[Rfam]
RNA sequence: CCCUCUUGUGCCUGCUAAACUGGUAUCAGUUUCUUGAAUAAAUGCUGGCUCAGUUCAGCAGGAACAGGAG
Numbered sequence: 001c002c003c004u005c006u007u008g009u010g011c012c013u014g015c016u017a018a019a020c021u022g023g024u025a026u027c028a029g030u031u032u033c034u035u036g037a038a039u040a041a042a043u044g045c046u047g048g049c050u051c052a053g054u055u056c057a058g059c060a061g062g063a064a065c066a067g068g069a070g
Stems, first nucleotide, its partner, number of pairs: 003070004008065002011062003015058002018055006026048005
Shown here is a 70-nucleotide RNA from Carassius auratus, a member of the family "mir-24 microRNA precursor family". The family has 63 seed sequences and 1,372 matches in Rfam 15.1. The source organism's lineage runs through Eukaryota, Eumetazoa, Actinopterygii, Teleostei and Carassius. Gene Ontology terms of the family: RISC complex and miRNA-mediated post-transcriptional gene silencing. For this family Rfam cites "Identification of novel genes coding for small expressed RNAs" (Lagos-Quintana et al., Science, 2001). About the family: This family represents the microRNA (miRNA) mir-24 family. miRNAs are transcribed as ~70nt precursors (modelled here) and subsequently processed by the Dicer enzyme to give a ~22nt product. In this case the mature sequence comes from the 3' arm of the precursor. The extents of the hairpin precursors are not generally known and are estimated based on hairpin prediction. The products are thought to have regulatory roles through complementarity to mRNA. The involvement of Dicer in miRNA processing suggests a relationship with the phenomenon of RNA interference. miRNAs are numbered based on the sequence of the mature RNA. miR-24 has been identified in human and mouse.